RNA sequence: UUGGCGACUGCCGAAAAGCCAAAAUAAAGUAGGCA
Numbered sequence: 001u002u003g004g005c006g007a008c009u010g011c012c013g014a015a016a017a018g019c020c021a022a023a024a025u026a027a028a029g030u031a032g033g034c035a
Stems, first nucleotide, its partner, number of pairs: 002021004010034003
RNA: DUF805b RNA